[Rfam]
RNA sequence: GGGGCACGAGCGGCCGGGGCCGUGCAUCCCAUUUUUUUUAAUUUUUUAACCUUUUUAGCCCCGAUUGGUGUUACCAACCGGGACUAAAGA
Numbered sequence: 001g002g003g004g005c006a007c008g009a010g011c012g013g014c015c016g017g018g019g020c021c022g023u024g025c026a027u028c029c030c031a032u033u034u035u036u037u038u039u040a041a042u043u044u045u046u047u048a049a050c051c052u053u054u055u056u057a058g059c060c061c062c063g064a065u066u067g068g069u070g071u072u073a074c075c076a077a078c079c080g081g082g083a084c085u086a087a088a089g090a
Stems, first nucleotide, its partner, number of pairs: 001029003004025005010020002056086003059082003063078001065077003
RNA: pan motif